[Rfam]
RNA sequence: GCUGGGAGCGCUGGCGUGCUCCUGUAAUCCAGCUACUUGGAGGCAUGGUCGAGUGGCCGGUUUGAGUGCGGGGGUUCUGUUGUGCGUUGCAUUAUGGCGAUCGGGCGUCCGCACUAAGCCCGGCAUCAAUAUGGUUGGCUGGAGUGAACUUCAGUUGACCAGGUUGACUAAGGAGGGCCGACCCGGUCCAGGGCGGAAACGCAGCAGACAAAAGUCCCCGUGUCUGGCAGUAGUGGGAUCGCGCCUGUGAAUAGUGCACGUGCCGCAGCCCGUUCAAUACAACCGAACCUCGAUCUCU
Numbered sequence: 001g002c003u004g005g006g007a008g009c010g011c012u013g014g015c016g017u018g019c020u021c022c023u024g025u026a027a028u029c030c031a032g033c034u035a036c037u038u039g040g041a042g043g044c045a046u047g048g049u050c051g052a053g054u055g056g057c058c059g060g061u062u063u064g065a066g067u068g069c070g071g072g073g074g075u076u077c078u079g080u081u082g083u084g085c086g087u088u089g090c091a092u093u094a095u096g097g098c099g100a101u102c103g104g105g106c107g108u109c110c111g112c113a114c115u116a117a118g119c120c121c122g123g124c125a126u127c128a129a130u131a132u133g134g135u136u137g138g139c140u141g142g143a144g145u146g147a148a149c150u151u152c153a154g155u156u157g158a159c160c161a162g163g164u165u166g167a168c169u170a171a172g173g174a175g176g177g178c179c180g181a182c183c184c185g186g187u188c189c190a191g192g193g194c195g196g197a198a199a200c201g202c203a204g205c206a207g208a209c210a211a212a213a214g215u216c217c218c219c220g221u222g223u224c225u226g227g228c229a230g231u232a233g234u235g236g237g238a239u240c241g242c243g244c245c246u247g248u249g250a251a252u253a254g255u256g257c258a259c260g261u262g263c264c265g266c267a268g269c270c271c272g273u274u275c276a277a278u279a280c281a282a283c284c285g286a287a288c289c290u291c292g293a294u295c296u297c298u
Base pairs, nucleotide, nucleotide: 001044002043003042004023005022006021007020008019009018010017011016028041029040030039047295048294049293050292051291052290053289058285059284060283061282062281066275068273069272070271071270072269077268078267079266080265082263083262084261085260086259087258091255092254093253094252095251102247103246104245105244106243107242108241109237110236112235113234114233115232116231118228119227120226122224123223124222125221126220127166128165129164130163132161133160134159135158136157137156138155139154140153141152142151143150144149168172175218176217177216179214186209187208188207193202194201195200
The record is a 298-nucleotide RNA sequence from Acanthosepion pharaonis, which matches "Metazoan signal recognition particle RNA" in Rfam. About the family: The signal recognition particle (SRP) is a universally conserved ribonucleoprotein. It is involved in the co-translational targeting of proteins to membranes. The eukaryotic SRP consists of a 300-nucleotide 7S RNA and six proteins: SRPs 72, 68, 54, 19, 14, and 9. The match comes from Rfam's covariance-model search (242 bits). A reference for the family is Wild et al. (2002), "Towards the structure of the mammalian signal recognition particle", Curr Opin Struct Biol.